[Rfam]
RNA sequence: ACAAAAAUUCGGCCAAAACCGCCAGGUGCGGGGGAAAAGAAACAAAAGUACCUUCCGGGCAACCGAUUGUACUUGGGGUGAAUCGCAAUAAUCAAGCGUAGGGUUGUCUCCCAGCCCGAGUCCGACAGCUAACCUCGCCGGCCAAUCUAGGAGGAUUU
Dot-bracket structure: ..........((((...(((....)))((((((.....(..................................).(((.....(((.........)))..((((.........))))...))).........)))))).))))...............
Numbered sequence: 001a002c003a004a005a006a007a008u009u010c011g012g013c014c015a016a017a018a019c020c021g022c023c024a025g026g027u028g029c030g031g032g033g034g035a036a037a038a039g040a041a042a043c044a045a046a047a048g049u050a051c052c053u054u055c056c057g058g059g060c061a062a063c064c065g066a067u068u069g070u071a072c073u074u075g076g077g078g079u080g081a082a083u084c085g086c087a088a089u090a091a092u093c094a095a096g097c098g099u100a101g102g103g104u105u106g107u108c109u110c111c112c113a114g115c116c117c118g119a120g121u122c123c124g125a126c127a128g129c130u131a132a133c134c135u136c137g138c139c140g141g142c143c144a145a146u147c148u149a150g151g152a153g154g155a156u157u158u
Stems, first nucleotide, its partner, number of pairs: 011143004018027003028138006039074001076123003084098003101117004